[Rfam]
RNA sequence: CGAGCGAUCAUAAGGGAGCUGACUACAAAUCUGCCGUCAUCGACUUCAAGGUUCGACUCGAGCAAUAGUGAGAGAACGUUGCCGCAGGCAACGGCCCGAAGGGUGAGGAGCUUUAGCUCCGAAUAAUCCUUCCCGCUAUAG
Numbered sequence: 001c002g003a004g005c006g007a008u009c010a011u012a013a014g015g016g017a018g019c020u021g022a023c024u025a026c027a028a029a030u031c032u033g034c035c036g037u038c039a040u041c042g043a044c045u046u047c048a049a050g051g052u053u054c055g056a057c058u059c060g061a062g063c064a065a066u067a068g069u070g071a072g073a074g075a076a077c078g079u080u081g082c083c084g085c086a087g088g089c090a091a092c093g094g095c096c097c098g099a100a101g102g103g104u105g106a107g108g109a110g111c112u113u114u115a116g117c118u119c120c121g122a123a124u125a126a127u128c129c130u131u132c133c134c135g136c137u138a139u140a141g
Stems, first nucleotide, its partner, number of pairs: 015132004021128001041105002044103002052100004059070002077093006
Rfam assigns this 141-nucleotide RNA from Salmonella enterica to the family "RtT RNA".
Pairs were carried over by alignment from the consensus structure, which is taken from published work.
A reference for the family is Bosl and Kersten (1991), "A novel RNA product of the tyrT operon of Escherichia coli", Nucleic Acids Res.
The family has 57 seed sequences and 651 matches in Rfam 15.1.
The organism belongs to Salmonella enterica subsp. enterica serovar Dublin, within Bacteria.
This family represents a bacterial cis-regulatory element known as RtT RNA. The exact function of RtT is unknown although it is thought that it may be involved in changing the cellular response in relation to amino acid starvation.